RNA sequence: UUUGUCGUGAGACAUGGAGUUAAGGAAGCGGAACUACAAAACUCGGUACUGACGAACAGAAAUCGUAUACAGAGGCAUAUUUACUUGGGUAAGCAAGCACAUCAUUGUAACGCCCCAAGAUUAUCAAAAGGGUAAGUAUGUAGAUACGGCAGGCAUUGAGUGAAAGAAGAAGCC
Numbered sequence: 001u002u003u004g005u006c007g008u009g010a011g012a013c014a015u016g017g018a019g020u021u022a023a024g025g026a027a028g029c030g031g032a033a034c035u036a037c038a039a040a041a042c043u044c045g046g047u048a049c050u051g052a053c054g055a056a057c058a059g060a061a062a063u064c065g066u067a068u069a070c071a072g073a074g075g076c077a078u079a080u081u082u083a084c085u086u087g088g089g090u091a092a093g094c095a096a097g098c099a100c101a102u103c104a105u106u107g108u109a110a111c112g113c114c115c116c117a118a119g120a121u122u123a124u125c126a127a128a129a130g131g132g133u134a135a136g137u138a139u140g141u142a143g144a145u146a147c148g149g150c151a152g153g154c155a156u157u158g159a160g161u162g163a164a165a166g167a168a169g170a171a172g173c174c
Stems, first nucleotide, its partner, number of pairs: 001016001003014004030174002037166001041161006049152003063149006075141003079137007087115004093108004
RNA: Group II catalytic intron D1-D4-3
Organism: Siansivirga zeaxanthinifaciens